[Rfam]
RNA sequence: AUACGUUGGAUUAAUAUGAGGCAUCGGAUGGAUUUCGUUCAAUCCGAGCCCUACAUUCAUCUGGGGUUCGU
Numbered sequence: 001a002u003a004c005g006u007u008g009g010a011u012u013a014a015u016a017u018g019a020g021g022c023a024u025c026g027g028a029u030g031g032a033u034u035u036c037g038u039u040c041a042a043u044c045c046g047a048g049c050c051c052u053a054c055a056u057u058c059a060u061c062u063g064g065g066g067u068u069c070g071u
Base pairs, nucleotide, nucleotide: 004066006064007063009061010060011059013057014056015055017053018052020050021049022048024047025046026045027044028043029042031040032039
Shown here is a 71-nucleotide sequence from Nicotiana sylvestris, a member of the family "MIR6151 microRNA precursor family". Pairs were carried over by alignment from the consensus structure, which was predicted with RNAalifold. NCBI's taxonomy places the organism under Eukaryota, Embryophyta, Tracheophyta, Euphyllophyta, Nicotiana.